[Rfam]
Shown here is a 221-nucleotide RNA sequence from Shewanella aestuarii, a member of the family "HNH endonuclease-associated RNA and ORF (HEARO) RNA". By type it is a non-coding RNA gene. Rfam 15.1 lists 952 matches to the family in 249 species. For this family Rfam cites "Exceptional structured noncoding RNAs revealed by bacterial metagenome analysis" (Weinberg et al., Nature, 2009).
Nucleotides: 221
Stems, first nucleotide, its partner, number of pairs: 001049006008042001010028002012025001015022002029038002052207004057080005086202005091196005103137002107131008115217002119213004139184009151175002154172004158167002
Number, partner (000 for none) and nucleotide at each position: 001049g002048u003047c004046a005045a006044c007000u008042a009000c010028c011027c012025g013000c014000c015022c016021c017000u018000a019000a020000a021016g022015g023000a024000a025012c026000g027011g028010g029038c030037u031000u032000g033000u034000a035000a036000u037030a038029g039000c040000c041000c042008u043000u044006g045005u046004u047003g048002a049001c050000c051000a052207g053206a054205c055204c056000c057080u058079a059078a060077c061076a062000g063000g064000a065000g066000a067000u068000a069000a070000g071000c072000a073000a074000g075000u076061u077060g078059u079058u080057a081000g082000a083000a084000a085000c086202g087201a088200u089199a090198a091196g092195a093194c094193a095192g096000a097000a098000a099000u100000u101000a102000g103137g104136u105000a106000c107131g108130u109129u110128a111127g112126c113125a114124u115217g116216c117000c118000g119213u120212c121211u122210c123000a124114g125113u126112g127111c128110u129109a130108a131107c132000c133000u134000c135000u136104a137103c138000g139184g140183u141182a142181a143180u144179g145178c146177g147176u148000u149000a150000a151175a152174c153000a154172g155171u156170g157169c158167u159166a160000u161000u162000g163000g164000g165000u166159u167158a168000u169157g170156c171155a172154c173000a174152g175151u176147g177146c178145g179144u180143a181142u182141u183140a184139c185000g186000u187000u188000a189000a190000a191000c192095c193094u194093g195092u196091c197000a198090u199089u200088a201087u202086c203000u204055g205054g206053u207052c208000g209000a210122g211121a212120g213119g214000a215000a216116g217115u218000c219000g220000a221000a